[Rfam]
RNA sequence: UGUUGUCUUUGACAACGGCCAAUGUUCCCGUGAUUUGAGAGGAACGCUUUCGGGUAAUCACAUGCCAAUGCCAUCAUGACCUGUGAGAUGGCGCUUUCGGGCGGUACACCUAAAUCUGUUAACCUUUGCAAACAGAGACCUUCGGGUUAAGGCUCA
Dot-bracket structure: .((((((...)))))).......[[[[[.((((((.....]]]]](((....)))))))))........(((((..[[.[[......)))))(((....)))]]]]........(((((....[[[.....))))).(((....))).]]].....
RNA: STAXI RNA
Organism: Yersinia pseudotuberculosis